[Rfam]
RNA sequence: AGCCUAAGUCCUUAUUGGGAUAUGGCAUAAAAAACCGUGCAAGAUAGAGAGCCCAUCGUUUGGGAACACCUUGCACGGUCAUAUGCCGAAAGGCGUAUGGGUGGCGAAAGCCAUC
Numbered sequence: 001a002g003c004c005u006a007a008g009u010c011c012u013u014a015u016u017g018g019g020a021u022a023u024g025g026c027a028u029a030a031a032a033a034a035c036c037g038u039g040c041a042a043g044a045u046a047g048a049g050a051g052c053c054c055a056u057c058g059u060u061u062g063g064g065a066a067c068a069c070c071u072u073g074c075a076c077g078g079u080c081a082u083a084u085g086c087c088g089a090a091a092g093g094c095g096u097a098u099g100g101g102u103g104g105c106g107a108a109a110g111c112c113a114u115c
Stems, first nucleotide, its partner, number of pairs: 002026003009020004035078009049067001052064004080099008100115006
Shown here is a 115-nucleotide RNA, a member of the family "LOOT RNA". The family's consensus secondary structure is taken from published work. Rfam classes the family as a small RNA. Rfam's curators put it in the seed alignment.